A member of the RNA family "mir-3492 microRNA precursor family" from Schistosoma haematobium, 80 nucleotides long.
[Rfam]
RNA sequence: AGCCUUCUGAAUCCGUUGCCAAGACUUUGUCAGACACCAGACCAUCAGGACUGACGAGACAUCCCAAGAUGAGUGAAGCA
Dot-bracket structure: .((.((.(..(((..(.(..(.(..((((((.....................)))))).).).).).)))..).)).)).
About this RNA: The base pairs follow the family's consensus structure, which was predicted with RNAalifold. It scores 50 bits against the family's covariance model.